[Rfam]
RNA sequence: CUUUAACAAUCUGGAACAAGCUGAAAAUUGAAACGAUUGAACGCUUCUUGACGUAAGAAGUGGUUCAACGAGUCUCUCAAAUGUUUGCAACGCGAAGUGAAACAUCUUCGG
Number, nucleotide and partner (000 for none) at each position: 001c000002u000003u000004u000005a000006a000007c000008a000009a000010u000011c000012u000013g000014g000015a000016a000017c000018a000019a000020g088021c087022u000023g086024a085025a084026a000027a082028u081029u080030g000031a000032a000033a000034c070035g069036a000037u000038u067039g066040a065041a064042c063043g000044c000045u000046u000047c000048u000049u000050g000051a000052c000053g000054u000055a000056a000057g000058a000059a000060g000061u000062g000063g042064u041065u040066c039067a038068a000069c035070g034071a000072g000073u000074c000075u000076c000077u000078c000079a000080a029081a028082u027083g000084u025085u024086u023087g021088c020089a000090a000091c000092g000093c110094g109095a108096a000097g106098u000099g000100a000101a000102a000103c000104a000105u000106c097107u000108u095109c094110g093111g000
Annotation: Rfam assigns this 111-nucleotide sequence from Serratia rubidaea to the family "Salmonella enterica Typhi npcRNA 44". For this family Rfam cites "Experimental identification and characterization of 97 novel npcRNA candidates in Salmonella enterica serovar Typhi" (Chinni et al., Nucleic Acids Res, 2010). The match comes from Rfam's covariance-model search (84 bits). The family's consensus secondary structure was predicted with CMfinder. Rfam classes the family as a non-coding RNA gene.